[Rfam]
Rfam assigns this 431-nucleotide RNA sequence from Corynebacterium resistens to the family "Bacterial RNase P class A". Taxonomically the source falls in Corynebacterium resistens (Bacteria, Actinomycetes, Corynebacteriaceae, Corynebacterium). The family's RNA type in Rfam is ribozyme.
RNA sequence: CGAGACAGCUGGGUGAUCGCGGCGCGUGGGACCGGCCACCUUGUGUGGCGAGGCCAGGCGCGGAGGAAAGUCCGGACUCCACAGGGCACGGUGGUUGCUAACGGCAACCCGGGGUGACCCGCGGGCUAGUGCCACAGAAAACAGACCGCCCGUUGCUUUGGCGCGGGUAAGGGUGAAAAGGUGCGGUAAGAGCGCACCAGCAUCCCAGGUGACUGGGGUGGCUUGGUAAACCCCACCGGGAGCAAGGUCAAGUGCUUGCAUUGCGUGUUCAUUUGGGCGCGCAGUGCGUGCGAAUUCGAGGGCGGCCCGCCCGCAUGAUGAAUAGGUAGACCGCUUGAGGCCACCAGCGAUGGUUGGCACAGAUGGAUGAUCACCUCGCCCGCACCCGUGGUGCGGGUAGACAGAAUCCGGCUCACAGGCUGUCUCGACUU
Numbered sequence: 001c002g003a004g005a006c007a008g009c010u011g012g013g014u015g016a017u018c019g020c021g022g023c024g025c026g027u028g029g030g031a032c033c034g035g036c037c038a039c040c041u042u043g044u045g046u047g048g049c050g051a052g053g054c055c056a057g058g059c060g061c062g063g064a065g066g067a068a069a070g071u072c073c074g075g076a077c078u079c080c081a082c083a084g085g086g087c088a089c090g091g092u093g094g095u096u097g098c099u100a101a102c103g104g105c106a107a108c109c110c111g112g113g114g115u116g117a118c119c120c121g122c123g124g125g126c127u128a129g130u131g132c133c134a135c136a137g138a139a140a141a142c143a144g145a146c147c148g149c150c151c152g153u154u155g156c157u158u159u160g161g162c163g164c165g166g167g168u169a170a171g172g173g174u175g176a177a178a179a180g181g182u183g184c185g186g187u188a189a190g191a192g193c194g195c196a197c198c199a200g201c202a203u204c205c206c207a208g209g210u211g212a213c214u215g216g217g218g219u220g221g222c223u224u225g226g227u228a229a230a231c232c233c234c235a236c237c238g239g240g241a242g243c244a245a246g247g248u249c250a251a252g253u254g255c256u257u258g259c260a261u262u263g264c265g266u267g268u269u270c271a272u273u274u275g276g277g278c279g280c281g282c283a284g285u286g287c288g289u290g291c292g293a294a295u296u297c298g299a300g301g302g303c304g305g306c307c308c309g310c311c312c313g314c315a316u317g318a319u320g321a322a323u324a325g326g327u328a329g330a331c332c333g334c335u336u337g338a339g340g341c342c343a344c345c346a347g348c349g350a351u352g353g354u355u356g357g358c359a360c361a362g363a364u365g366g367a368u369g370a371u372c373a374c375c376u377c378g379c380c381c382g383c384a385c386c387c388g389u390g391g392u393g394c395g396g397g398u399a400g401a402c403a404g405a406a407u408c409c410g411g412c413u414c415a416c417a418g419g420c421u422g423u424c425u426c427g428a429c430u431u
Base pairs, nucleotide, nucleotide: 001427002426003425004424005423006422007421008420009419010418011416012375013374014373015372016371017370018369020063022061023060024059025058027056028055069413070412072411073410074409075408076407077242078241079240080239084308085307086306087305089238090237091236092235093234094108095107096106097105098104109123110121111120112119113118124233125232129231130230131227132226133225146172147171148168149167150166151165152164153163155162156161180198181197182196183195184194185193200222201220202219203218204217205216206215207214208213246332247331248330249329257322259320260319261318300312301311302310303309339358341356343354344353345352346351